[Rfam]
RNA sequence: UCCAGUGGUAGUCAGCUGUCCAGAGCAGUACUGUGUCUGUGAUAGUGUUACACUGCUGGGAGAUAAAUAUCAGUCAUUUCUUCUGGCUGCUGCUUCUGGAGACAGUGGAUGCCAAAAAGAAGUGGCAUUGUGCUUCCCUGAGAGUGCACUAAAGACUUGUUUUCCCUCUUCAGUGCUAGUCCGGAGGCAUACAGA
Numbered sequence: 001u002c003c004a005g006u007g008g009u010a011g012u013c014a015g016c017u018g019u020c021c022a023g024a025g026c027a028g029u030a031c032u033g034u035g036u037c038u039g040u041g042a043u044a045g046u047g048u049u050a051c052a053c054u055g056c057u058g059g060g061a062g063a064u065a066a067a068u069a070u071c072a073g074u075c076a077u078u079u080c081u082u083c084u085g086g087c088u089g090c091u092g093c094u095u096c097u098g099g100a101g102a103c104a105g106u107g108g109a110u111g112c113c114a115a116a117a118a119g120a121a122g123u124g125g126c127a128u129u130g131u132g133c134u135u136c137c138c139u140g141a142g143a144g145u146g147c148a149c150u151a152a153a154g155a156c157u158u159g160u161u162u163u164c165c166c167u168c169u170u171c172a173g174u175g176c177u178a179g180u181c182c183g184g185a186g187g188c189a190u191a192c193a194g195a
Stems, first nucleotide, its partner, number of pairs: 001060009011051002015046006021039004068127001070125003078121005084114004090108003094105001130190008146176003150172001152170004